[Rfam]
RNA: ABC transporter regulator
RNA sequence: GUGAACCAUCGUGAUGUGGUUAUUUCAAUCGGUAAGAUGUUGAUUGAAUAGGGCAAUGUUUUCAUUGCCCUUUAUUUUGU
Numbered sequence: 001g002u003g004a005a006c007c008a009u010c011g012u013g014a015u016g017u018g019g020u021u022a023u024u025u026c027a028a029u030c031g032g033u034a035a036g037a038u039g040u041u042g043a044u045u046g047a048a049u050a051g052g053g054c055a056a057u058g059u060u061u062u063c064a065u066u067g068c069c070c071u072u073u074a075u076u077u078u079g080u
Base pairs, nucleotide, nucleotide: 025047026046027045028044029043030042031041032040050071051070052069053068054067055066056065057064058063